The record is a 377-nucleotide RNA sequence from Sphingomonas sp. FARSPH, which matches "Alphaproteobacteria transfer-messenger RNA" in Rfam. Clan: tRNA clan. From the family's description: Bacterial tmRNA, also known as 10Sa RNA or SsrA, is named for its dual tRNA and mRNA-like properties. The family's consensus secondary structure is taken from published work. Taxonomically the source falls in Sphingomonas (Bacteria, Pseudomonadati, Pseudomonadota, Sphingomonadaceae).

RNA sequence: GCCAUUGCGGCGACGGUUGGGCGCGCCUAUAUCCGGAUCGUCGGCUUCCAGCCGGCUAUGGCGAUAAACUGCGGCGUGAAAUAGGCGCAGCGGACCCGGGGGCAGUACCCGGCGGCUCCACCAUCGCAGCUGAUCCGCAUGGCGCCACGCAUGAAGCGUGUCGCCGGGCGACUCAGCUUCGCUGAUGGGGCCGAACCAGGAUCGACGUGUGUUGAAAGGCGCUGUUUUCGCUCGGAAUGGGACCACCGCAACGGCCCAUUACACAAGUGCCAACGAUAACGAAGCACUCGCGAUUGCGGCGUAACUGAGGGCCUCGCGGCCUAAGGUUACACCAAGAUAGCGCGGUCGGACCCCACCGGGCAACAGAAGGGGACUCC
Numbered sequence: 001g002c003c004a005u006u007g008c009g010g011c012g013a014c015g016g017u018u019g020g021g022c023g024c025g026c027c028u029a030u031a032u033c034c035g036g037a038u039c040g041u042c043g044g045c046u047u048c049c050a051g052c053c054g055g056c057u058a059u060g061g062c063g064a065u066a067a068a069c070u071g072c073g074g075c076g077u078g079a080a081a082u083a084g085g086c087g088c089a090g091c092g093g094a095c096c097c098g099g100g101g102g103c104a105g106u107a108c109c110c111g112g113c114g115g116c117u118c119c120a121c122c123a124u125c126g127c128a129g130c131u132g133a134u135c136c137g138c139a140u141g142g143c144g145c146c147a148c149g150c151a152u153g154a155a156g157c158g159u160g161u162c163g164c165c166g167g168g169c170g171a172c173u174c175a176g177c178u179u180c181g182c183u184g185a186u187g188g189g190g191c192c193g194a195a196c197c198a199g200g201a202u203c204g205a206c207g208u209g210u211g212u213u214g215a216a217a218g219g220c221g222c223u224g225u226u227u228u229c230g231c232u233c234g235g236a237a238u239g240g241g242a243c244c245a246c247c248g249c250a251a252c253g254g255c256c257c258a259u260u261a262c263a264c265a266a267g268u269g270c271c272a273a274c275g276a277u278a279a280c281g282a283a284g285c286a287c288u289c290g291c292g293a294u295u296g297c298g299g300c301g302u303a304a305c306u307g308a309g310g311g312c313c314u315c316g317c318g319g320c321c322u323a324a325g326g327u328u329a330c331a332c333c334a335a336g337a338u339a340g341c342g343c344g345g346u347c348g349g350a351c352c353c354c355a356c357c358g359g360g361c362a363a364c365a366g367a368a369g370g371g372g373a374c375u376c377c
Stems, first nucleotide, its partner, number of pairs: 040056005060232005071225007086211003090208003096112005113193007233248003238258003243254002343358004349375001352372002

A search with the family's covariance model found it, with a score of 209 bits.
The literature on the family includes a 2002 paper in Nucleic Acids Res by Laslett et al., "BRUCE: a program for the detection of transfer-messenger RNA genes in nucleotide sequences".